Description
Shown here is a 168-nucleotide sequence from [Ruminococcus] lactaris, a member of the family "Clostridiales-1 RNA".

RNA sequence: UGAUGCCAGGGUCAAAAGGUCUAAGCCCACAUGAGCUUGCUCAUAGGUGGGUGAAAGACCUUAGGACCCGCCCCGAUAUGAGCAUAAAAAUGGGGCGUAAGCACCAUGAUAUGCGAAUAGCGGGUAGGAUUGUGGGAGUGCGUAGCACGAAACAAUCCGUAGGCAUCA
Numbered sequence: 001u002g003a004u005g006c007c008a009g010g011g012u013c014a015a016a017a018g019g020u021c022u023a024a025g026c027c028c029a030c031a032u033g034a035g036c037u038u039g040c041u042c043a044u045a046g047g048u049g050g051g052u053g054a055a056a057g058a059c060c061u062u063a064g065g066a067c068c069c070g071c072c073c074c075g076a077u078a079u080g081a082g083c084a085u086a087a088a089a090a091u092g093g094g095g096c097g098u099a100a101g102c103a104c105c106a107u108g109a110u111a112u113g114c115g116a117a118u119a120g121c122g123g124g125u126a127g128g129a130u131u132g133u134g135g136g137a138g139u140g141c142g143u144a145g146c147a148c149g150a151a152a153c154a155a156u157c158c159g160u161a162g163g164c165a166u167c168a
Stems, first nucleotide, its partner, number of pairs: 001168007010068004016062007026051005031044005072124004077119003082114004092105002095102002127158007138148004

Background: The family's consensus secondary structure is taken from published work.